[Rfam]
RNA sequence: GGGGGCGUUUUUGGAUUCGACGGGGACAGUUCGAGCAUGAGUAGCGGGUAGUGGGGACGCGUCCGCUUCAUCAACGCUAACGCCAAUAAUAACUGGCAAACAACAAAACAACUACGCUCUCGCAGCUUAAUAACCUGCAGACGUGCUCUCGCUCUGCAUCGCCCAUGUGCCGGGAUGAGGGCUCACUCUUAGUGGGAUACGCUGUCUAGUCUCCGCCUGCGGCUAGCUGAAGAAGACAAACAGGCUGACCCGAAGGGAAUCCGGUGACGGGGAGUCUCUAGGGUGACAUCAAAACUGUCACUACACCCGUAGAAGCUUAUGUGGCGUUGUCUUCGGACAGGGGUUCGACUCCCCUCGCCUCCAUAC
Numbered sequence: 001g002g003g004g005g006c007g008u009u010u011u012u013g014g015a016u017u018c019g020a021c022g023g024g025g026a027c028a029g030u031u032c033g034a035g036c037a038u039g040a041g042u043a044g045c046g047g048g049u050a051g052u053g054g055g056g057a058c059g060c061g062u063c064c065g066c067u068u069c070a071u072c073a074a075c076g077c078u079a080a081c082g083c084c085a086a087u088a089a090u091a092a093c094u095g096g097c098a099a100a101c102a103a104c105a106a107a108a109c110a111a112c113u114a115c116g117c118u119c120u121c122g123c124a125g126c127u128u129a130a131u132a133a134c135c136u137g138c139a140g141a142c143g144u145g146c147u148c149u150c151g152c153u154c155u156g157c158a159u160c161g162c163c164c165a166u167g168u169g170c171c172g173g174g175a176u177g178a179g180g181g182c183u184c185a186c187u188c189u190u191a192g193u194g195g196g197a198u199a200c201g202c203u204g205u206c207u208a209g210u211c212u213c214c215g216c217c218u219g220c221g222g223c224u225a226g227c228u229g230a231a232g233a234a235g236a237c238a239a240a241c242a243g244g245c246u247g248a249c250c251c252g253a254a255g256g257g258a259a260u261c262c263g264g265u266g267a268c269g270g271g272g273a274g275u276c277u278c279u280a281g282g283g284u285g286a287c288a289u290c291a292a293a294a295c296u297g298u299c300a301c302u303a304c305a306c307c308c309g310u311a312g313a314a315g316c317u318u319a320u321g322u323g324g325c326g327u328u329g330u331c332u333u334c335g336g337a338c339a340g341g342g343g344u345u346c347g348a349c350u351c352c353c354c355u356c357g358c359c360u361c362c363a364u365a366c
Stems, first nucleotide, its partner, number of pairs: 001362007021335010035322008045309005051069001053067002058082002120140001122138004145182006152174003156170004162196005202229001204227001206226005215246001217244002248284004253279001255277003260273003264301004269295001339355005
The family of this 366-nucleotide RNA from Paenibacillus albilobatus is "transfer-messenger RNA". Bacterial tmRNA, also known as 10Sa RNA or SsrA, is named for its dual tRNA and mRNA-like properties. Its role is to liberate the mRNA from a stalled ribosome. To accomplish this part of the tmRNA is used as a reading frame that ends in a translation stop signal. The broken mRNA is replaced in the ribosome by the tmRNA and translation of the tmRNA leads to addition of a proteolysis tag to the incomplete protein enabling recognition by a protease. Recently a number of permuted tmRNA genes have been found encoded in two parts. tmRNAs have been identified in eubacteria and some chloroplasts but are absent from archaeal and eukaryote nuclear genomes. Taxonomically the source falls in Paenibacillus (Bacteria, Bacillota, Bacilli, Caryophanales). It scores 187 bits against the family's covariance model.